[Rfam]
This 46-nucleotide RNA sequence from Lentisphaera araneosa belongs to the Rfam family "Acido-Lenti-1 RNA". The organism belongs to Lentisphaera araneosa, within Bacteria. Rfam 15.1 lists 2,607 matches to the family in 171 species. By type it is a small RNA. The base pairs follow the family's consensus structure, which is taken from published work.
RNA sequence: CCUAGCUCUCACGAGCCAGGCUAUGUUAAGCCGUCCCUUCGGGACU
Numbered sequence: 001c002c003u004a005g006c007u008c009u010c011a012c013g014a015g016c017c018a019g020g021c022u023a024u025g026u027u028a029a030g031c032c033g034u035c036c037c038u039u040c041g042g043g044a045c046u
Stems, first nucleotide, its partner, number of pairs: 001020003005016004033045005